This 132-nucleotide RNA sequence from Balaenoptera physalus belongs to the Rfam family "Small nucleolar RNA SNORA63". Rfam describes the family as follows. E3 belongs to the H/ACA class of snoRNAs and is involved in the processing of eukaryotic pre-rRNA and has regions of complementarity to 18S rRNA. E3 is encoded in introns in the gene for protein synthesis initiation factor 4AII.
[Rfam]
RNA sequence: AAGCAGGAUCUAGUUACAAUGUAGCUGUGAAGUGCCGCGUUGUCUUUGCCUCCUGCUCAAAAUAAGACUGUUGCCUUUCAAGCCCUGUCAGCCAUGGUGCUGUAGCAGCCAGGGAUGCAUGGUCUCAUACAC
Numbered sequence: 001a002a003g004c005a006g007g008a009u010c011u012a013g014u015u016a017c018a019a020u021g022u023a024g025c026u027g028u029g030a031a032g033u034g035c036c037g038c039g040u041u042g043u044c045u046u047u048g049c050c051u052c053c054u055g056c057u058c059a060a061a062a063u064a065a066g067a068c069u070g071u072u073g074c075c076u077u078u079c080a081a082g083c084c085c086u087g088u089c090a091g092c093c094a095u096g097g098u099g100c101u102g103u104a105g106c107a108g109c110c111a112g113g114g115a116u117g118c119a120u121g122g123u124c125u126c127a128u129a130c131a132c
Stems, first nucleotide, its partner, number of pairs: 003056005016043007024035002084113004089108001091106002